[Rfam]
RNA sequence: UAAACAGUCGAGAACCAUUUGAAUCACUACACUACUUGAUUCAAAAGGUUCUCGAA
Numbered sequence: 001u002a003a004a005c006a007g008u009c010g011a012g013a014a015c016c017a018u019u020u021g022a023a024u025c026a027c028u029a030c031a032c033u034a035c036u037u038g039a040u041u042c043a044a045a046a047g048g049u050u051c052u053c054g055a056a
Stems, first nucleotide, its partner, number of pairs: 008055009018045009